[Rfam]
RNA sequence: AAUUCUAUUCAUAGGAACAAAGAGAAGCAGAUUUAUUCUAAACUCUAUAAGUACAAAUACACAAUGGGG
Numbered sequence: 001a002a003u004u005c006u007a008u009u010c011a012u013a014g015g016a017a018c019a020a021a022g023a024g025a026a027g028c029a030g031a032u033u034u035a036u037u038c039u040a041a042a043c044u045c046u047a048u049a050a051g052u053a054c055a056a057a058u059a060c061a062c063a064a065u066g067g068g069g
Base pairs, nucleotide, nucleotide: 003022004021006019008017009016010015043068044067045066051060052059053058
The family of this 69-nucleotide sequence from Capsicum baccatum is "Plastid-clpP 5UTR RNA". Taxonomically the source falls in Capsicum (Eukaryota, Gunneridae, Solanoideae, Capsiceae). Rfam's curators write: Plastid clpP is a non-coding RNA (ncRNA) recognised in plastids. It was found in the prime untranslated region (5UTR) of a protease complex subunit (clpP) in plastids, suggesting a posible cis-regulatory function. It is annotated as a cis-regulatory element.